A member of the RNA family "Archaeal small subunit ribosomal RNA" from uncultured marine crenarchaeote SAT1000-49-D2, 359 nucleotides of a longer RNA. The sequence is in the family's curated seed alignment. Its Rfam clan is "SSU clan". Taxonomically the source falls in Nitrosopumilales (Archaea, Thermoproteati, Nitrososphaerota, Nitrososphaeria). The base pairs follow the family's consensus structure, which is taken from published work.
[Rfam]
RNA sequence: GGCCUAAAGCAUCCGUAGCCGGCUUUGUAAGUUUUCGGUUAAAUCCAUGUGCUCAACGCAUGGGCUGCCGAAAAUACUGCAUGGCUAGGGAGUGGGAGAGGUAGACGGUACUCAGUAGGAAGGGGUAAAAUCCUUUGAUCUAUUGAUGACCACCUGUGGCGAAGGCGGUCUACCAGAACACGUUCGACGGUGAGGGAUGAAAGCUGGGGGAGCAAACCGGAUUAGAUACCCGGGUAGUCCCAGCUGUAAACGAUGCAGACUCGAUGAUGCAUUGGCAUAAUAGCCAGUGCAGUGUCGCAGGGAAGCCGUUAAGUCUGCCGCCUGGGAAGUACGUACGCAAGUAUGAAACUUAAAGGAAU
Numbered sequence: 001g002g003c004c005u006a007a008a009g010c011a012u013c014c015g016u017a018g019c020c021g022g023c024u025u026u027g028u029a030a031g032u033u034u035u036c037g038g039u040u041a042a043a044u045c046c047a048u049g050u051g052c053u054c055a056a057c058g059c060a061u062g063g064g065c066u067g068c069c070g071a072a073a074a075u076a077c078u079g080c081a082u083g084g085c086u087a088g089g090g091a092g093u094g095g096g097a098g099a100g101g102u103a104g105a106c107g108g109u110a111c112u113c114a115g116u117a118g119g120a121a122g123g124g125g126u127a128a129a130a131u132c133c134u135u136u137g138a139u140c141u142a143u144u145g146a147u148g149a150c151c152a153c154c155u156g157u158g159g160c161g162a163a164g165g166c167g168g169u170c171u172a173c174c175a176g177a178a179c180a181c182g183u184u185c186g187a188c189g190g191u192g193a194g195g196g197a198u199g200a201a202a203g204c205u206g207g208g209g210g211a212g213c214a215a216a217c218c219g220g221a222u223u224a225g226a227u228a229c230c231c232g233g234g235u236a237g238u239c240c241c242a243g244c245u246g247u248a249a250a251c252g253a254u255g256c257a258g259a260c261u262c263g264a265u266g267a268u269g270c271a272u273u274g275g276c277a278u279a280a281u282a283g284c285c286a287g288u289g290c291a292g293u294g295u296c297g298c299a300g301g302g303a304a305g306c307c308g309u310u311a312a313g314u315c316u317g318c319c320g321c322c323u324g325g326g327a328a329g330u331a332c333g334u335a336c337g338c339a340a341g342u343a344u345g346a347a348a349c350u351u352a353a354a355g356g357a358a359u
Stems, first nucleotide, its partner, number of pairs: 001322003009319001011198004016192001018191003022085003026081003030078002032074008045063007089185003092181003100174007107151002112146007122133003159166002203244006212238002217233004255318006263296004268291009300307002324351003333344004